[Rfam]
Rfam assigns this 70-nucleotide sequence from Drosophila persimilis to the family "mir-5 microRNA precursor family". It is one of the family's seed sequences. Pairs were carried over by alignment from the consensus structure, which was predicted with RNAalifold.
RNA sequence: CUAAAAGGAACGAUCGUUGUGAUAUGCGUUAAUUCACCGUUACAUAUCACAGUGAUUUUCCUUUAUAGCG
Numbered sequence: 001c002u003a004a005a006a007g008g009a010a011c012g013a014u015c016g017u018u019g020u021g022a023u024a025u026g027c028g029u030u031a032a033u034u035c036a037c038c039g040u041u042a043c044a045u046a047u048c049a050c051a052g053u054g055a056u057u058u059u060c061c062u063u064u065a066u067a068g069c070g
Stems, first nucleotide, its partner, number of pairs: 004064007012057015